[Rfam]
RNA sequence: GAAAAGGGCUUUUGUGGUGAGUGACACAUGCAGGGAAGCUCAUUUGCUCCAAAAUCAAGAGGUUUUGGAAGCAUAAUUUUUGUCGUUUGGGCAACUGGUGAUUGUUGGUCCCAGCACCCUA
Dot-bracket structure: .......((((((((.(....).)))......(((.((.....)).)))(((((........))))))))))................(((...((((.((((...))))))))..)))..

The record is a 121-nucleotide RNA sequence from Erinaceus europaeus, which matches "U11 spliceosomal RNA" in Rfam. The match comes from Rfam's covariance-model search (58 bits). Its Rfam clan is "U1 clan". For this family Rfam cites "Additional low-abundance human small nuclear ribonucleoproteins: U11, U12, etc" (Montzka and Steitz, Proc Natl Acad Sci U S A, 1988). By type it is a spliceosomal small nuclear RNA.